[Rfam]
U8 small nucleolar RNA: a 133-nucleotide sequence from Myotis myotis. Pairs were carried over by alignment from the consensus structure, which is taken from published work. The source organism's lineage runs through Eukaryota, Dipnotetrapodomorpha, Tetrapoda, Boreoeutheria and Myotis.

RNA sequence: CAGUCAGGUAGGAUAAUCCUUACCUGUUCCUCCUUUUGGAGGGCAGAUUGGAACAUGAUGAUGGGAGUUCACAGGACUCAGGCUUAGCAUCUCUGCAUAAUCAGGAUUUGCAAGACCCUGAUUGUAAAAUAAA
Numbered sequence: 001c002a003g004u005c006a007g008g009u010a011g012g013a014u015a016a017u018c019c020u021u022a023c024c025u026g027u028u029c030c031u032c033c034u035u036u037u038g039g040a041g042g043g044c045a046g047a048u049u050g051g052a053a054c055a056u057g058a059u060g061a062u063g064g065g066a067g068u069u070c071a072c073a074g075g076a077c078u079c080a081g082g083c084u085u086a087g088c089a090u091c092u093c094u095g096c097a098u099a100a101u102c103a104g105g106a107u108u109u110g111c112a113a114g115a116c117c118c119u120g121a122u123u124g125u126a127a128a129a130u131a132a133a
Base pairs, nucleotide, nucleotide: 024046025045026044028043029042030041031040032039033038075093076092097125098124099123100122101121102120103119104118105117